[Rfam]
Nucleotides: 099
Base pairs, nucleotide, nucleotide: 012096013065014064015063016062017061018060066082067081068080070078071077072076083095084094085093
Number, partner (000 for none) and nucleotide at each position: 001000a002000u003000a004000a005000u006000g007000a008000u009000a010000c011000u012096u013065c014064u015063g016062c017061c018060u019000a020000g021000c022000c023000g024000u025000a026000g027000a028000c029000c030000g031000c032000g033000c034000u035000u036000u037000a038000a039000g040000g041000g042000c043000g044000u045000g046000u047000a048000u049000g050000c051000a052000a053000g054000c055000a056000u057000c058000g059000g060018g061017g062016g063015c064014a065013g066082u067081c068080c069000g070078g071077g072076c073000a074000g075000c076072g077071c078070c079000g080068g081067g082066a083095a084094g085093g086000u087000g088000a089000a090000a091000a092000c093085c094084c095083u096012a097000u098000g099000g
This 99-nucleotide RNA belongs to the Rfam family "pemK RNA".